RNA sequence: CGAUGGGCUACCGCCCAUCGCUGAUAUAUUUCGCCCUUUCAGGGCU
Numbered sequence: 001c002g003a004u005g006g007g008c009u010a011c012c013g014c015c016c017a018u019c020g021c022u023g024a025u026a027u028a029u030u031u032c033g034c035c036c037u038u039u040c041a042g043g044g045c046u
Stems, first nucleotide, its partner, number of pairs: 001020008033045005
Dot-bracket structure: ((((((((....))))))))............(((((...))))).

A member of the RNA family "Acido-Lenti-1 RNA" from Taibaiella sp., 46 nucleotides long. Pairs were carried over by alignment from the consensus structure, which is taken from published work. By type it is a small RNA.